This 471-nucleotide RNA sequence from Lentibacillus salicampi belongs to the Rfam family "Group I catalytic intron". A search with the family's covariance model found it, with a score of 87 bits. Pairs were carried over by alignment from the consensus structure, which is taken from published work. Group I catalytic introns are large self-splicing ribozymes. They catalyse their own excision from mRNA, tRNA and rRNA precursors in a wide range of organisms. The core secondary structure consists of 9 paired regions (P1-P9). These fold to essentially two domains - the P4-P6 domain (formed from the stacking of P5, P4, P6 and P6a helices) and the P3-P9 domain (formed from the P8, P3, P7 and P9 helices). The secondary structure mark-up for this family represents only this conserved core. Group I catalytic introns often have long ORFs inserted in loop regions. The window size for this search is chosen to minimise search time and catch the small examples. A larger window size will find more matches.
RNA sequence: GCCAACGGGUAAAGUCAUUGCCCCCUAUAUCUGUAAAGAUGUAGCGUAAACUUGGCUAUAUGCGGGAAACUCUCAGUAUCCUUUCAUACUCGCGUCUUGCCGGCGCAUUUUGUCCGAGUAAAAACUGAAAGGUGGAGACAAUCCGCAGGGAAGUCGUGGCUGACCCCUCAACGACUCUACGCCAAGCAACCAUGUUUAAACACCUUGGAUUUAUAUGAGAAAUAUAAAAGAGGUGGAACGAAGAAAAGCUGAACUAAGGGAUGAAUUUACUUGUCAAGAUUGUGGUUUGACUGAGAAGAAAUAUGGUAAAGAACUACCAAUUCACCAUAUAAUUCCAUUUAGAGAAUUUAACGGAGAUUGGGAGCGUGCAAAUGCGCUUUCACAUUUAAUCAGGUUAUGUGAAUAUCCGUGUCACCGCAAUAGGCACAAACGUGGUUGAUGAUAUAGUCUGAUCCGCAUGGCGACAUGUGG
Numbered sequence: 001g002c003c004a005a006c007g008g009g010u011a012a013a014g015u016c017a018u019u020g021c022c023c024c025c026u027a028u029a030u031c032u033g034u035a036a037a038g039a040u041g042u043a044g045c046g047u048a049a050a051c052u053u054g055g056c057u058a059u060a061u062g063c064g065g066g067a068a069a070c071u072c073u074c075a076g077u078a079u080c081c082u083u084u085c086a087u088a089c090u091c092g093c094g095u096c097u098u099g100c101c102g103g104c105g106c107a108u109u110u111u112g113u114c115c116g117a118g119u120a121a122a123a124a125c126u127g128a129a130a131g132g133u134g135g136a137g138a139c140a141a142u143c144c145g146c147a148g149g150g151a152a153g154u155c156g157u158g159g160c161u162g163a164c165c166c167c168u169c170a171a172c173g174a175c176u177c178u179a180c181g182c183c184a185a186g187c188a189a190c191c192a193u194g195u196u197u198a199a200a201c202a203c204c205u206u207g208g209a210u211u212u213a214u215a216u217g218a219g220a221a222a223u224a225u226a227a228a229a230g231a232g233g234u235g236g237a238a239c240g241a242a243g244a245a246a247a248g249c250u251g252a253a254c255u256a257a258g259g260g261a262u263g264a265a266u267u268u269a270c271u272u273g274u275c276a277a278g279a280u281u282g283u284g285g286u287u288u289g290a291c292u293g294a295g296a297a298g299a300a301a302u303a304u305g306g307u308a309a310a311g312a313a314c315u316a317c318c319a320a321u322u323c324a325c326c327a328u329a330u331a332a333u334u335c336c337a338u339u340u341a342g343a344g345a346a347u348u349u350a351a352c353g354g355a356g357a358u359u360g361g362g363a364g365c366g367u368g369c370a371a372a373u374g375c376g377c378u379u380u381c382a383c384a385u386u387u388a389a390u391c392a393g394g395u396u397a398u399g400u401g402a403a404u405a406u407c408c409g410u411g412u413c414a415c416c417g418c419a420a421u422a423g424g425c426a427c428a429a430a431c432g433u434g435g436u437u438g439a440u441g442a443u444a445u446a447g448u449c450u451g452a453u454c455c456g457c458a459u460g461g462c463g464a465c466a467u468g469u470g471g
Stems, first nucleotide, its partner, number of pairs: 001022001003020003029040003051186004056181001061147006071138004148167002171450001173449004189436009456469005